[Rfam]
RNA: tRNA
Organism: Acholeplasma laidlawii
RNA sequence: AGGCCCAUAGCCAAGCGGUAAGGCAACGGACUUUGACUCCGUCACUCGUAGGUUCAAAUCCUGCUGGGCCUG
Numbered sequence: 001a002g003g004c005c006c007a008u009a010g011c012c013a014a015g016c017g018g019u020a021a022g023g024c025a026a027c028g029g030a031c032u033u034u035g036a037c038u039c040c041g042u043c044a045c046u047c048g049u050a051g052g053u054u055c056a057a058a059u060c061c062u063g064c065u066g067g068g069c070c071u072g
Base pairs, nucleotide, nucleotide: 001071002070003069004068005067006066007065010024011023012022026042027041028040029039030038048064049063050062051061052060